The family of this 143-nucleotide sequence from Tripterygium wilfordii is "Small nucleolar RNA snoR136". It scores 63 bits against the family's covariance model. The family's RNA type in Rfam is H/ACA-box small nucleolar RNA. On this family, see Chen and Wu, Nucleic Acids Res 2009: "Mining small RNA sequencing data: a new approach to identify small nucleolar RNAs in Arabidopsis". Lineage of the source: Eukaryota > Spermatophyta > Mesangiospermae > eudicotyledons > Tripterygium.
RNA sequence: UUGGCUUCCAUCCUACGGUUCAUUAGCUUUGCACUCUGUUCAUAUGUGCUAGUUAAUAUAAAAUGUGAAGCCUACAAUUUCUGCUCCCCUCGCUAUCCGGUGCGGUUGCUAGUGUUGCAUUUGGACGUUGGGGAUCUAUAUUU
Numbered sequence: 001u002u003g004g005c006u007u008c009c010a011u012c013c014u015a016c017g018g019u020u021c022a023u024u025a026g027c028u029u030u031g032c033a034c035u036c037u038g039u040u041c042a043u044a045u046g047u048g049c050u051a052g053u054u055a056a057u058a059u060a061a062a063a064u065g066u067g068a069a070g071c072c073u074a075c076a077a078u079u080u081c082u083g084c085u086c087c088c089c090u091c092g093c094u095a096u097c098c099g100g101u102g103c104g105g106u107u108g109c110u111a112g113u114g115u116u117g118c119a120u121u122u123g124g125a126c127g128u129u130g131g132g133g134a135u136c137u138a139u140a141u142u143u
Stems, first nucleotide, its partner, number of pairs: 002074001003072003008067001009065003014061001018057001023056006030048001033047002083136001085134005091127002096125005